[Rfam]
RNA: Small nucleolar RNA SNORD67
Organism: Hemibagrus wyckioides
RNA sequence: UGGGGUGAUGAUGCUGUCCUGUUUGGUGGGGGAGCUCCUGCAGUGGUGGGAACCUUCACUCAGACUCCUGAUGACAUGCACAGGGGCCAUCUGACCAGCA
Numbered sequence: 001u002g003g004g005g006u007g008a009u010g011a012u013g014c015u016g017u018c019c020u021g022u023u024u025g026g027u028g029g030g031g032g033a034g035c036u037c038c039u040g041c042a043g044u045g046g047u048g049g050g051a052a053c054c055u056u057c058a059c060u061c062a063g064a065c066u067c068c069u070g071a072u073g074a075c076a077u078g079c080a081c082a083g084g085g086g087c088c089a090u091c092u093g094a095c096c097a098g099c100a
Base pairs, nucleotide, nucleotide: 004099006097007096022064023063024062025061026059027058028057029056031054032053037050038049039048040047041046